[Rfam]
Shown here is a 117-nucleotide RNA sequence from Oceanicola granulosus, a member of the family "ALIL pseudoknot". Taxonomically the source falls in Oceanicola granulosus (Bacteria, Alphaproteobacteria, Roseobacteraceae, Oceanicola). Rfam classes the family as a cis-regulatory element. The family's consensus secondary structure is taken from published work.

RNA sequence: GGCGUAUUUUGCCCAGGCGGAGCUCGACCGCCCGUCGAAGCGAUGAUCGCGUUCAUCGAUGACCACCGCAACGUCCAUGGGGUCGAGCCGAUCUGCCACCUGCUGCCGAUCGCCCCG
Numbered sequence: 001g002g003c004g005u006a007u008u009u010u011g012c013c014c015a016g017g018c019g020g021a022g023c024u025c026g027a028c029c030g031c032c033c034g035u036c037g038a039a040g041c042g043a044u045g046a047u048c049g050c051g052u053u054c055a056u057c058g059a060u061g062a063c064c065a066c067c068g069c070a071a072c073g074u075c076c077a078u079g080g081g082g083u084c085g086a087g088c089c090g091a092u093c094u095g096c097c098a099c100c101u102g103c104u105g106c107c108g109a110u111c112g113c114c115c116c117g
Stems, first nucleotide, its partner, number of pairs: 016032005078117005089112002092109002095106002